[Rfam]
RNA: HDV ribozyme from F. prausnitzii
Organism: Dinothrombium tinctorium
RNA sequence: GAACGUCAAUUCUGACCACCUCCUCGCGGUGACGUUCGGGCAACGGAAAAGAAUCCGGCAGAGAGUCAGG
Numbered sequence: 001g002a003a004c005g006u007c008a009a010u011u012c013u014g015a016c017c018a019c020c021u022c023c024u025c026g027c028g029g030u031g032a033c034g035u036u037c038g039g040g041c042a043a044c045g046g047a048a049a050a051g052a053a054u055c056c057g058g059c060a061g062a063g064a065g066u067c068a069g070g
Base pairs, nucleotide, nucleotide: 001037002036003035004034005033006032007031018030019029020028044057045056046055047054